[Rfam]
RNA sequence: AUCGCUUCUCUGCCUUUUGGCUAAGAUCAAGUGUAGUAUCUGUCCUUAUCAGUUUAAUAUCUGAUACGUCCUCUAUCCGAGGACUAUGUAUUACGUGGAUUUUUGGAACUAGGAGUUGGAAUAGGAGCUUGCUCCGUCCACUCCACGCAUCGACCUGGUAUUGCAGUACCUCCAGGAACGGUGGAGAGAGA
Numbered sequence: 001a002u003c004g005c006u007u008c009u010c011u012g013c014c015u016u017u018u019g020g021c022u023a024a025g026a027u028c029a030a031g032u033g034u035a036g037u038a039u040c041u042g043u044c045c046u047u048a049u050c051a052g053u054u055u056a057a058u059a060u061c062u063g064a065u066a067c068g069u070c071c072u073c074u075a076u077c078c079g080a081g082g083a084c085u086a087u088g089u090a091u092u093a094c095g096u097g098g099a100u101u102u103u104u105g106g107a108a109c110u111a112g113g114a115g116u117u118g119g120a121a122u123a124g125g126a127g128c129u130u131g132c133u134c135c136g137u138c139c140a141c142u143c144c145a146c147g148c149a150u151c152g153a154c155c156u157g158g159u160a161u162u163g164c165a166g167u168a169c170c171u172c173c174a175g176g177a178a179c180g181g182u183g184g185a186g187a188g189a190g191a
Base pairs, nucleotide, nucleotide: 007026008025009024012021013020014019047066048065049064050063051062052061068084069083070082071081072080073079112144113143114142115141116140118138119137124135125134126133127132148183149182150181151180152179154176155175156174157173158172
Rfam assigns this 191-nucleotide RNA sequence from Peromyscus maniculatus to the family "U2 spliceosomal RNA".
Gene Ontology terms of the family: U2 snRNP, pre-mRNA branch point binding and mRNA branch site recognition.
The family's consensus secondary structure is taken from published work.
The literature on the family includes a 1997 paper in Nucleic Acids Res by Zwieb, "The uRNA database".
The source organism's lineage runs through Eukaryota, Euteleostomi, Euarchontoglires, Cricetidae and Peromyscus maniculatus.
The family's RNA type in Rfam is spliceosomal small nuclear RNA.